[Rfam]
RNA: tRNA
RNA sequence: GGGUCGGUGCCCGAGUGGUUAAUGGGGGCGGACUGUAAAUCCGUUGGCUACGCCUACACUAGUUCAAAUCUAGUCCGGCCCA
Numbered sequence: 001g002g003g004u005c006g007g008u009g010c011c012c013g014a015g016u017g018g019u020u021a022a023u024g025g026g027g028g029c030g031g032a033c034u035g036u037a038a039a040u041c042c043g044u045u046g047g048c049u050a051c052g053c054c055u056a057c058a059c060u061a062g063u064u065c066a067a068a069u070c071u072a073g074u075c076c077g078g079c080c081c082a
Stems, first nucleotide, its partner, number of pairs: 001081007010026004028044005058074005